[Rfam]
RNA sequence: UGGGGUAUAGCCAAGUGGUAAGGCAGUGGUUUUUGGUACCAUGUAGCGUAGGUUCGAAUCCUACUACCCCAG
Numbered sequence: 001u002g003g004g005g006u007a008u009a010g011c012c013a014a015g016u017g018g019u020a021a022g023g024c025a026g027u028g029g030u031u032u033u034u035g036g037u038a039c040c041a042u043g044u045a046g047c048g049u050a051g052g053u054u055c056g057a058a059u060c061c062u063a064c065u066a067c068c069c070c071a072g
Base pairs, nucleotide, nucleotide: 001071002070003069004068005067006066007065010024011023012022026042027041028040029039030038048064049063050062051061052060
Dot-bracket structure: (((((((..(((.........))).(((((.......))))).....(((((.......)))))))))))).
Shown here is a 72-nucleotide RNA from Weissella diestrammenae, a member of the family "tRNA".
Rfam describes the family as follows. Transfer RNA (tRNA) molecules are approximately 80 nucleotides in length.
Rfam classes the family as a transfer RNA.